[Rfam]
RNA sequence: AUUCCUACAGUUACUGCUGACCCAAAAAUUCCUUAUAAUGAUAAGCAGUAA
Numbered sequence: 001a002u003u004c005c006u007a008c009a010g011u012u013a014c015u016g017c018u019g020a021c022c023c024a025a026a027a028a029u030u031c032c033u034u035a036u037a038a039u040g041a042u043a044a045g046c047a048g049u050a051a
Stems, first nucleotide, its partner, number of pairs: 011051008
Shown here is a 51-nucleotide sequence from Vibrio tasmaniensis, a member of the family "malK-II RNA". The base pairs follow the family's consensus structure, which is taken from published work. The sequence is in the family's curated seed alignment. By type it is a cis-regulatory element. The organism belongs to Vibrio tasmaniensis, within Bacteria.